[Rfam]
RNA sequence: UGACGACCACGCGACUGGCGCAGUCAAGGUGGAGCCGACCACCGGGGAGCGAAGACCGCCGUCCGCACACCGCGCGCCUGGGUGUACGGG
Numbered sequence: 001u002g003a004c005g006a007c008c009a010c011g012c013g014a015c016u017g018g019c020g021c022a023g024u025c026a027a028g029g030u031g032g033a034g035c036c037g038a039c040c041a042c043c044g045g046g047g048a049g050c051g052a053a054g055a056c057c058g059c060c061g062u063c064c065g066c067a068c069a070c071c072g073c074g075c076g077c078c079u080g081g082g083u084g085u086a087c088g089g090g
Base pairs, nucleotide, nucleotide: 005056007054010051011050012049015046016045017078018077019076020075021074029042030041031040032039067085068084069083070082071081
A member of the RNA family "ZMP/ZTP riboswitch aptamer (pfl RNA motif)" from Actinomadura logoneensis, 90 nucleotides long. The organism belongs to Actinomadura, within Bacteria. Rfam links the family to the GO terms regulation of purine nucleotide biosynthetic process and one-carbon metabolic process. Pairs were carried over by alignment from the consensus structure, which is taken from published work.